[Rfam]
RNA: Small nucleolar RNA U61
Organism: Eucalyptus grandis
RNA sequence: GAACUGAUUAUCUCGUGUACCGGAGACGGUCUCAUCUUUGGGAUCCGUCCGUGACGGCCGCACAACCCUCUAAGAAGUUCUGAGUUC
Numbered sequence: 001g002a003a004c005u006g007a008u009u010a011u012c013u014c015g016u017g018u019a020c021c022g023g024a025g026a027c028g029g030u031c032u033c034a035u036c037u038u039u040g041g042g043a044u045c046c047g048u049c050c051g052u053g054a055c056g057g058c059c060g061c062a063c064a065a066c067c068c069u070c071u072a073a074g075a076a077g078u079u080c081u082g083a084g085u086u087c
Stems, first nucleotide, its partner, number of pairs: 001087004
Dot-bracket structure: ((((...............................................................................))))